[Rfam]
RNA sequence: GUACGUUUACCCUUCGGGGCGCAUGUGGAUCAGCCAUGAAACGGGGGCUGAU
Numbered sequence: 001g002u003a004c005g006u007u008u009a010c011c012c013u014u015c016g017g018g019g020c021g022c023a024u025g026u027g028g029a030u031c032a033g034c035c036a037u038g039a040a041a042c043g044g045g046g047g048c049u050g051a052u
Base pairs, nucleotide, nucleotide: 004043005042006041007040008039010019011018012017029052030051031050032049033048034046035045

Source information: Shown here is a 52-nucleotide RNA from Banchanvirus SS1201, a member of the family "Glutamine-II riboswitch aptamer". A reference for the family is Huang et al. (2019), "Structure and ligand binding of the glutamine-II riboswitch", Nucleic Acids Res. Rfam links the family to the GO term glutamine binding.